RNA sequence: GUGCCAUUCAAACUAUGGGGGCACUUUCUGUUCUAGGAAGGAAAGUGCCGCCAUUUUUUGAGUGUCCC
Numbered sequence: 001g002u003g004c005c006a007u008u009c010a011a012a013c014u015a016u017g018g019g020g021g022c023a024c025u026u027u028c029u030g031u032u033c034u035a036g037g038a039a040g041g042a043a044a045g046u047g048c049c050g051c052c053a054u055u056u057u058u059u060g061a062g063u064g065u066c067c068c
Base pairs, nucleotide, nucleotide: 005064006063007062008061009060010059011058012057015054016053017052018051020049021048022047023046024045025044026043027042028041
The record is a 68-nucleotide sequence from Vulpes vulpes, which matches "mir-290 microRNA precursor family" in Rfam. The family has 31 seed sequences and 565 matches in Rfam 15.1. Gene Ontology terms of the family: RISC complex and miRNA-mediated post-transcriptional gene silencing. For this family Rfam cites "Embryonic stem cell-specific MicroRNAs" (Houbaviy et al., Dev Cell, 2003). Its Rfam clan is "mir-290 clan". The family's consensus secondary structure was predicted with RNAalifold.